[Rfam]
RNA sequence: UUUGUUUCUGGUGGUCAGGAAUUGCAGAUAAAUCUUUUGCCUUUUACUAAAGAUUUCCGUGGCCAGGUGUCAAUUUUUUUAACCUCUGGCAGUCAUAUAAUUGAAAAUUACC
Number, nucleotide and partner (000 for none) at each position: 001u000002u000003u072004g071005u000006u069007u067008c066009u000010g000011g000012u065013g064014g063015u062016c061017a060018g000019g000020a000021a000022u000023u000024g000025c000026a000027g000028a000029u000030a056031a055032a054033u053034c052035u051036u050037u049038u000039g000040c000041c000042u000043u000044u000045u000046a000047c000048u000049a037050a036051a035052g034053a033054u032055u031056u030057c000058c000059g000060u017061g016062g015063c014064c013065a012066g008067g007068u000069g006070u000071c004072a003073a000074u000075u000076u000077u000078u000079u000080u000081a000082a000083c000084c000085u000086c000087u000088g000089g000090c000091a000092g111093u110094c000095a108096u107097a000098u000099a000100a000101u000102u000103g000104a000105a000106a000107a096108u095109u000110a093111c092112c000

U5 spliceosomal RNA: a 112-nucleotide RNA from Acanthosepion pharaonis. The source organism's lineage runs through Eukaryota, Eumetazoa, Sepiina, Sepiidae and Acanthosepion. Rfam describes the family as follows. U5 RNA is a component of both types of known spliceosome. For this family Rfam cites "The spliceosomal snRNAs of Caenorhabditis elegans" (Thomas et al., Nucleic Acids Res, 1990). Pairs were carried over by alignment from the consensus structure, which is taken from published work.